[Rfam]
RNA sequence: GGAAGCGUGGCAGAGUGGUUGAAUGCACCGGUCUUGAAAACCGGCAUACCGCAAGGUAUCCAGGGUUCGAAUCCCUGCGCUUCCG
Dot-bracket structure: (((((((..(((...........))).(((((.......)))))................(((((.......)))))))))))).
Numbered sequence: 001g002g003a004a005g006c007g008u009g010g011c012a013g014a015g016u017g018g019u020u021g022a023a024u025g026c027a028c029c030g031g032u033c034u035u036g037a038a039a040a041c042c043g044g045c046a047u048a049c050c051g052c053a054a055g056g057u058a059u060c061c062a063g064g065g066u067u068c069g070a071a072u073c074c075c076u077g078c079g080c081u082u083c084c085g
Stems, first nucleotide, its partner, number of pairs: 001084007010026003028044005061077005
Rfam assigns this 85-nucleotide RNA from Pseudothauera rhizosphaerae to the family "tRNA". About the family: Transfer RNA (tRNA) molecules are approximately 80 nucleotides in length. The organism belongs to Pseudothauera, within Bacteria. The base pairs follow the family's consensus structure, which is taken from published work. Rfam links the family to the GO term triplet codon-amino acid adaptor activity. A search with the family's covariance model found it, with a score of 62 bits.